Shown here is a 173-nucleotide RNA from Thermotalea metallivorans, a member of the family "Group II catalytic intron D1-D4-3". The base pairs follow the family's consensus structure. Taxonomically the source falls in Thermotalea (Bacteria, Bacillati, Bacillota, Clostridia).
Nucleotides: 173
Stems, first nucleotide, its partner, number of pairs: 001016006028173001030171003035166002040160006046151005062146006073138003079133006086114004092107004
Number, partner (000 for none) and nucleotide at each position: 001016u002015c003014c004013a005012u006011c007000g008000u009000g010000a011006g012005g013004u014003g015002g016001a017000a018000u019000c020000u021000g022000a023000a024000g025000g026000a027000a028173g029000c030171c031170g032169g033000a034000g035166g036165c037000a038000a039000a040160g041159u042158c043157c044156c045155g046151a047150c048149c049148c050147g051000a052000u053000g054000a055000a056000c057000a058000a059000a060000a061000a062146c063145c064144a065143g066142a067141u068000a069000c070000a071000a072000g073138g074137c075136u076000g077000a078000a079133g080132u081131g082130g083129g084128a085000c086114g087113g088112a089111c090000g091000a092107g093106u094105u095104u096000g097000c098000g099000u100000g101000a102000c103000a104095a105094a106093a107092c108000a109000a110000a111089g112088u113087c114086c115000a116000a117000c118000a119000c120000u121000g122000c123000a124000c125000g126000a127000a128084u129083c130082c131081c132080a133079c134000a135000c136075a137074g138073u139000a140000a141067a142066u143065c144064u145063g146062g147050c148049g149048g150047g151046u152000a153000c154000a155045u156044g157043g158042g159041a160040u161000g162000a163000a164000g165036g166035u167000a168000a169032c170031u171030g172000c173028u